[Rfam]
RNA sequence: AGCACUAUAUUUAACCCAAUGGAUGGUCGUGGUUCCCAUCCUUGGUUACGCUGUGGUGCUAAAGCAUUCCCUGGCUCUCCUGCUUGCACAGCUGCCUCGGUGCCCUUCUGCUGUGGCUGUCAGGAAGGAAGGGACAUAG
Numbered sequence: 001a002g003c004a005c006u007a008u009a010u011u012u013a014a015c016c017c018a019a020u021g022g023a024u025g026g027u028c029g030u031g032g033u034u035c036c037c038a039u040c041c042u043u044g045g046u047u048a049c050g051c052u053g054u055g056g057u058g059c060u061a062a063a064g065c066a067u068u069c070c071c072u073g074g075c076u077c078u079c080c081u082g083c084u085u086g087c088a089c090a091g092c093u094g095c096c097u098c099g100g101u102g103c104c105c106u107u108c109u110g111c112u113g114u115g116g117c118u119g120u121c122a123g124g125a126a127g128g129a130a131g132g133g134a135c136a137u138a139g
Base pairs, nucleotide, nucleotide: 002059003058004057005056006055007054008053009052014047016045017044021041022040023039024038025037026036068134069133070132071131072130075128076127078125079124080123082121086117087116089113090112091111092110094108
RNA: Small nucleolar RNA SNORA46
Organism: Chrysochloris asiatica